[Rfam]
RNA sequence: AGCAGAAACCUCAUUGAGUGCAGCGUUGAUGAAGUUCAAUUUUUCUACUACUACUACUCUUUCCAAUCUCUUAAUUUCGGACAGAAAUAGAACUUCGUUAGCGCUGCACUCAAUUAUGUUUCUA
Number, nucleotide and partner (000 for none) at each position: 001a000002g000003c000004a000005g000006a121007a120008a119009c118010c000011u116012c000013a114014u113015u112016g111017a110018g109019u108020g107021c106022a105023g104024c103025g102026u101027u100028g099029a000030u097031g096032a095033a094034g093035u092036u000037c000038a000039a000040u000041u000042u000043u000044u000045c000046u000047a000048c000049u000050a000051c000052u000053a000054c000055u000056a000057c000058u000059c000060u000061u000062u000063c000064c000065a000066a000067u000068c000069u000070c000071u000072u000073a000074a000075u000076u000077u000078c000079g000080g000081a000082c000083a000084g000085a000086a000087a000088u000089a000090g000091a000092a035093c034094u033095u032096c031097g030098u000099u028100a027101g026102c025103g024104c023105u022106g021107c020108a019109c018110u017111c016112a015113a014114u013115u000116a011117u000118g009119u008120u007121u006122c000123u000124a000
The record is a 124-nucleotide RNA from Trema andersonii, which matches "MIR397 microRNA precursor family" in Rfam. NCBI's taxonomy places the organism under Eukaryota, Viridiplantae, Streptophyta, Rosales, Trema. The literature on the family includes a 2009 paper in Plant Cell by Wu et al., "Rice MicroRNA effector complexes and targets".